Annotation:
Rfam assigns this 53-nucleotide RNA to the family "Glutamine-II riboswitch aptamer". Its family is annotated with glutamine binding in the Gene Ontology.
[Rfam]
RNA sequence: GUCCGUUCAUCCUUCGGGACGCAUGAGAUCUGACCAUGGAACGGGGGUCAGGU
Numbered sequence: 001g002u003c004c005g006u007u008c009a010u011c012c013u014u015c016g017g018g019a020c021g022c023a024u025g026a027g028a029u030c031u032g033a034c035c036a037u038g039g040a041a042c043g044g045g046g047g048u049c050a051g052g053u
Base pairs, nucleotide, nucleotide: 004043005042006041007040008039010019011018012017028053029052030051031050032049033048034046035045
Record summary
Rfam's curators put it in the seed alignment.